[Rfam]
RNA sequence: UUGAGAACCGGUUGAAUCAAGUAAUGAUUCAACCGGUUCUCAAAAA
Numbered sequence: 001u002u003g004a005g006a007a008c009c010g011g012u013u014g015a016a017u018c019a020a021g022u023a024a025u026g027a028u029u030c031a032a033c034c035g036g037u038u039c040u041c042a043a044a045a046a
Base pairs, nucleotide, nucleotide: 001043002042003041004040005039006038007037008036009035010034011033012032013031014030015029016028017027018026
Dot-bracket structure: ((((((((((((((((((.......))))))))))))))))))...
This 46-nucleotide RNA from Ranunculus glacialis belongs to the Rfam family "Plastid-ccsA-ndhD-1 3UTR RNA".
A reference for the family is Richter et al. (2023), "Retrograde signaling in plants: A critical review focusing on the GUN pathway and beyond", Plant Commun.
The base pairs follow the family's consensus structure, which was predicted with LocARNA.
The organism belongs to Ranunculus, within Eukaryota.
From the family's description: Plastid-ccsA-ndhD-1 is a non-coding RNA (ncRNA) recognised in plastids.
Its Rfam clan is "Plastid-ccsA_ndhD 3UTR RNA clan".